[Rfam]
TPP riboswitch aptamer (THI element): a 94-nucleotide RNA sequence from Desulfosudis oleivorans. The source organism's lineage runs through Bacteria, Pseudomonadati, Desulfobacterales, Desulfosudis and Desulfosudis oleivorans.

RNA sequence: AUGCAGGAUUGGGGGUGGCGACAGAAAGCCUGAGAACAUACCCUUUGAACCUGGUCUGGGUAAUGCCAGCGUAGGGAAAUUGCAGCGGUAUGGU
Numbered sequence: 001a002u003g004c005a006g007g008a009u010u011g012g013g014g015g016u017g018g019c020g021a022c023a024g025a026a027a028g029c030c031u032g033a034g035a036a037c038a039u040a041c042c043c044u045u046u047g048a049a050c051c052u053g054g055u056c057u058g059g060g061u062a063a064u065g066c067c068a069g070c071g072u073a074g075g076g077a078a079a080u081u082g083c084a085g086c087g088g089u090a091u092g093g094u
Base pairs, nucleotide, nucleotide: 007081008080009079010078011044012043013042014041016038017030018029019028050075051074052073053072056069057068058067059066
The match comes from Rfam's covariance-model search (62 bits).